[Rfam]
RNA sequence: ACAAAGGCUCUUUUAAGAGCCACCCAUGACGUCACUAAAGAGCUU
Numbered sequence: 001a002c003a004a005a006g007g008c009u010c011u012u013u014u015a016a017g018a019g020c021c022a023c024c025c026a027u028g029a030c031g032u033c034a035c036u037a038a039a040g041a042g043c044u045u
Base pairs, nucleotide, nucleotide: 006021007020008019009018010017011016
This 45-nucleotide sequence from Triplophysa tibetana belongs to the Rfam family "Histone 3' UTR stem-loop". A reference for the family is Williams and Marzluff (1995), "The sequence of the stem and flanking sequences at the 3' end of histone mRNA are critical determinants for the binding of the stem-loop binding protein", Nucleic Acids Res. The family's RNA type in Rfam is cis-regulatory element. Its family is annotated with mRNA 3'-end processing by stem-loop binding and cleavage in the Gene Ontology. A search with the family's covariance model found it, with a score of 35 bits.